[Rfam]
RNA sequence: GAGGUUUUCCUCGGAAGUUAACUGCAGUCGGUUUCUUCAGAAUUCGGCAGUUAACUGCCGAGGGGUAU
Number, nucleotide and partner (000 for none) at each position: 001g000002a000003g000004g000005u000006u000007u000008u064009c063010c000011u061012c060013g059014g058015a000016a056017g055018u054019u053020a052021a051022c050023u049024g048025c047026a000027g000028u000029c000030g000031g000032u000033u000034u000035c000036u000037u000038c000039a000040g000041a000042a000043u000044u000045c000046g000047g025048c024049a023050g022051u021052u020053a019054a018055c017056u016057g000058c014059c013060g012061a011062g000063g009064g008065g000066u000067a000068u000
Annotation
MIR2629 microRNA precursor family: a 68-nucleotide sequence from Medicago truncatula. Lineage of the source: Eukaryota > Euphyllophyta > Fabales > Trifolieae > Medicago. Rfam links the family to the GO terms RISC complex and miRNA-mediated post-transcriptional gene silencing. The match comes from Rfam's covariance-model search (60 bits).